A member of the RNA family "Bacterial RNase P class B" from Vagococcus coleopterorum, 368 nucleotides long. Lineage of the source: Bacteria > Bacillati > Bacillota > Enterococcaceae > Vagococcus. Ribonuclease P (RNase P) is a ubiquitous endoribonuclease, found in archaea, bacteria and eukarya as well as chloroplasts and mitochondria. Clan: RNaseP clan. It scores 348 bits against the family's covariance model. The literature on the family includes a 1998 paper in Annu Rev Biochem by Frank and Pace, "Ribonuclease P: unity and diversity in a tRNA processing ribozyme".
RNA sequence: GUUUUUGGGUAAUCGCAGGCGAGUUUACUCGUUUGAGGAAAGUCCAUGCUCGCACAAGCUGCGAUGCUUGUAGUGUUCGUGCUUAGCGAAAAAAUAAGCUAAGGUACCUGCUUGUCAGGUAACGGCAGAUAAAACUCCUAAGGUUUCGGCUAUGGGGGAGUAGUCUUGAAAGUGCCACAGUGACGAAGUAACAUUAGAAAUGGUGUUAGUGGAACGCGGUAAACCCCUCGAGCGAGCAACCCAAACUUUGGUAGGGGCAUUCUUUUUGAGGAAUUGAACAAGAAAAGGAACAGUUUUACUGUAGACAGAUGAUUAUCGUUGGAACUUUCUUUCCUGAGAGGUUUCAAUACAGAACAUGGCUUAUAGAA
Numbered sequence: 001g002u003u004u005u006u007g008g009g010u011a012a013u014c015g016c017a018g019g020c021g022a023g024u025u026u027a028c029u030c031g032u033u034u035g036a037g038g039a040a041a042g043u044c045c046a047u048g049c050u051c052g053c054a055c056a057a058g059c060u061g062c063g064a065u066g067c068u069u070g071u072a073g074u075g076u077u078c079g080u081g082c083u084u085a086g087c088g089a090a091a092a093a094a095u096a097a098g099c100u101a102a103g104g105u106a107c108c109u110g111c112u113u114g115u116c117a118g119g120u121a122a123c124g125g126c127a128g129a130u131a132a133a134a135c136u137c138c139u140a141a142g143g144u145u146u147c148g149g150c151u152a153u154g155g156g157g158g159a160g161u162a163g164u165c166u167u168g169a170a171a172g173u174g175c176c177a178c179a180g181u182g183a184c185g186a187a188g189u190a191a192c193a194u195u196a197g198a199a200a201u202g203g204u205g206u207u208a209g210u211g212g213a214a215c216g217c218g219g220u221a222a223a224c225c226c227c228u229c230g231a232g233c234g235a236g237c238a239a240c241c242c243a244a245a246c247u248u249u250g251g252u253a254g255g256g257g258c259a260u261u262c263u264u265u266u267u268g269a270g271g272a273a274u275u276g277a278a279c280a281a282g283a284a285a286a287g288g289a290a291c292a293g294u295u296u297u298a299c300u301g302u303a304g305a306c307a308g309a310u311g312a313u314u315a316u317c318g319u320u321g322g323a324a325c326u327u328u329c330u331u332u333c334c335u336g337a338g339a340g341g342u343u344u345c346a347a348u349a350c351a352g353a354a355c356a357u358g359g360c361u362u363a364u365a366g367a368a
Stems, first nucleotide, its partner, number of pairs: 004368003007364001008317007016035006040362003044359005049236005054071006077231003081227001082103006104123001105121006124226002127166004135157004142151003172224002174220003189208008240256003260289007290302005319347009